Plastid-psbM 3UTR RNA: an 81-nucleotide RNA sequence from Corylopsis coreana. Plastid psbM is a non-coding RNA (ncRNA) recognised in plastids.

RNA sequence: GAUCCGAUAGUAUGGUAGAAAGAUUCAUAUAUUUCUUUCUACCAUACUAUUUAUUACUGUUAUUGUAGUGUAUAAAGUUGU
Numbered sequence: 001g002a003u004c005c006g007a008u009a010g011u012a013u014g015g016u017a018g019a020a021a022g023a024u025u026c027a028u029a030u031a032u033u034u035c036u037u038u039c040u041a042c043c044a045u046a047c048u049a050u051u052u053a054u055u056a057c058u059g060u061u062a063u064u065g066u067a068g069u070g071u072a073u074a075a076a077g078u079u080g081u
Stems, first nucleotide, its partner, number of pairs: 006051018